[Rfam]
The record is a 75-nucleotide sequence from Streptomyces alboflavus, which matches "ASpks TB sRNA" in Rfam. A search with the family's covariance model found it, with a score of 82 bits. It is annotated as an antisense RNA. Rfam 15.1 lists 9,052 matches to the family in 683 species. The base pairs follow the family's consensus structure, which is taken from published work.
RNA sequence: CUUCAGCGAGCCCAGCCACAGCGGCCGGUCGUCCGGCCGGUCCCUGCCGUACGUGGCGAGCAGCGCCUGCGCCUC
Numbered sequence: 001c002u003u004c005a006g007c008g009a010g011c012c013c014a015g016c017c018a019c020a021g022c023g024g025c026c027g028g029u030c031g032u033c034c035g036g037c038c039g040g041u042c043c044c045u046g047c048c049g050u051a052c053g054u055g056g057c058g059a060g061c062a063g064c065g066c067c068u069g070c071g072c073c074u075c
Stems, first nucleotide, its partner, number of pairs: 015025003033069001038065002043060001045058001047056003